[Rfam]
RNA sequence: AAUACGGGAUACGGGAGCUUGAGUGAAUCAGGCUGAGAUAGCAGCAUAAUCCGCUGCGAACCGUUAAUCUGAUCUGGAUAAUGCCAGCGUAGAGAAUCUGUCGUCUUGUCAU
Numbered sequence: 001a002a003u004a005c006g007g008g009a010u011a012c013g014g015g016a017g018c019u020u021g022a023g024u025g026a027a028u029c030a031g032g033c034u035g036a037g038a039u040a041g042c043a044g045c046a047u048a049a050u051c052c053g054c055u056g057c058g059a060a061c062c063g064u065u066a067a068u069c070u071g072a073u074c075u076g077g078a079u080a081a082u083g084c085c086a087g088c089g090u091a092g093a094g095a096a097u098c099u100g101u102c103g104u105c106u107u108g109u110c111a112u
Stems, first nucleotide, its partner, number of pairs: 007099004011064004017033005041057004068093004074087004